[Rfam]
RNA: Alphaproteobacterial sRNA BjrC1505
Organism: Rhodoblastus sp.
RNA sequence: UUUGUCAAGCUUAACGAGGCGUUAACCUUUCGCCGCUAAAGAUAGGGCAUCCAGUGAUCUGGAUGGGAGCGGUUCCUGUCCGCUCCGUUUGACGCCUCCCUGUUUGACCACUUGAGCCGCCUUCGGGCGGCUCUUUUUGG
Numbered sequence: 001u002u003u004g005u006c007a008a009g010c011u012u013a014a015c016g017a018g019g020c021g022u023u024a025a026c027c028u029u030u031c032g033c034c035g036c037u038a039a040a041g042a043u044a045g046g047g048c049a050u051c052c053a054g055u056g057a058u059c060u061g062g063a064u065g066g067g068a069g070c071g072g073u074u075c076c077u078g079u080c081c082g083c084u085c086c087g088u089u090u091g092a093c094g095c096c097u098c099c100c101u102g103u104u105u106g107a108c109c110a111c112u113u114g115a116g117c118c119g120c121c122u123u124c125g126g127g128c129g130g131c132u133c134u135u136u137u138u139g140g
Stems, first nucleotide, its partner, number of pairs: 001046004005017002023038002026035001050063004067085006091104004114133008